[Rfam]
RNA sequence: UGCAUCGAAGAUAAAAACACGGUGCCCGUCGGGUAGUCGGGCCGUGGGCGUUCGCCCGCCAGUAACCUGCCUCCUUGGUUGUCCCUUCUUCGCGUAGCCCUA
Numbered sequence: 001u002g003c004a005u006c007g008a009a010g011a012u013a014a015a016a017a018c019a020c021g022g023u024g025c026c027c028g029u030c031g032g033g034u035a036g037u038c039g040g041g042c043c044g045u046g047g048g049c050g051u052u053c054g055c056c057c058g059c060c061a062g063u064a065a066c067c068u069g070c071c072u073c074c075u076u077g078g079u080u081g082u083c084c085c086u087u088c089u090u091c092g093c094g095u096a097g098c099c100c101u102a
Stems, first nucleotide, its partner, number of pairs: 006092006022043001025041004044059006069079003
Dot-bracket structure: .....((((((..........(..((((.........)))).)((((((....)))))).........(((.....))).......))))))..........
A member of the RNA family "azaaromatic riboswitch aptamer (yjdF RNA)" from Collinsella stercoris, 102 nucleotides long.
The family's consensus secondary structure is taken from published work.